This 148-nucleotide sequence from Paenibacillus selenitireducens belongs to the Rfam family "FMN riboswitch aptamer (RFN element)". Lineage of the source: Bacteria > Bacillati > Bacillota > Bacilli > Paenibacillus. The match comes from Rfam's covariance-model search (111 bits).
[Rfam]
RNA sequence: AAGGAUCUUCGGGGUAGGGUGCAAUUCCCAACCGGCGGUGAUGUUCAUGAUGAACGAGCCCGCGACUCCUCUAGCUGACAGCAGCACGGGGGACUGACUUGGUGCGAAUCCAGGGCCGACGGUACAGUCCGGAUGGUAGAAGAUCAUC
Numbered sequence: 001a002a003g004g005a006u007c008u009u010c011g012g013g014g015u016a017g018g019g020u021g022c023a024a025u026u027c028c029c030a031a032c033c034g035g036c037g038g039u040g041a042u043g044u045u046c047a048u049g050a051u052g053a054a055c056g057a058g059c060c061c062g063c064g065a066c067u068c069c070u071c072u073a074g075c076u077g078a079c080a081g082c083a084g085c086a087c088g089g090g091g092g093a094c095u096g097a098c099u100u101g102g103u104g105c106g107a108a109u110c111c112a113g114g115g116c117c118g119a120c121g122g123u124a125c126a127g128u129c130c131g132g133a134u135g136g137u138a139g140a141a142g143a144u145c146a147u148c
Stems, first nucleotide, its partner, number of pairs: 004145007017029003031128002033118002035063004058116002067093005098114005120131003